[Rfam]
Rfam assigns this 144-nucleotide RNA sequence from Capsicum annuum to the family "Small nucleolar RNA snoR77".
Its family is annotated with nucleolus and RNA processing in the Gene Ontology.
The match comes from Rfam's covariance-model search (106 bits).
Taxonomically the source falls in Capsicum (Eukaryota, Gunneridae, Solanaceae, Capsiceae).
It is annotated as an H/ACA-box small nucleolar RNA.

RNA sequence: AGGCAGCCCCCUUUUCUUCCUAUAAAAUAGGAGAUGGGAAGGGAGGUGUUAAUCUACUCGUAUAUUAAACUGCUUUUGCUCUUCAGAUUUGCUGAGAUUAUUACUACUAAUCUCUGAAGCUGGUCUAGUAAGCUUUAGUACAUU
Numbered sequence: 001a002g003g004c005a006g007c008c009c010c011c012u013u014u015u016c017u018u019c020c021u022a023u024a025a026a027a028u029a030g031g032a033g034a035u036g037g038g039a040a041g042g043g044a045g046g047u048g049u050u051a052a053u054c055u056a057c058u059c060g061u062a063u064a065u066u067a068a069a070c071u072g073c074u075u076u077u078g079c080u081c082u083u084c085a086g087a088u089u090u091g092c093u094g095a096g097a098u099u100a101u102u103a104c105u106a107c108u109a110a111u112c113u114c115u116g117a118a119g120c121u122g123g124u125c126u127a128g129u130a131a132g133c134u135u136u137a138g139u140a141c142a143u144u
Stems, first nucleotide, its partner, number of pairs: 002050004007046002009043008073138002078133003085126005091120003096112005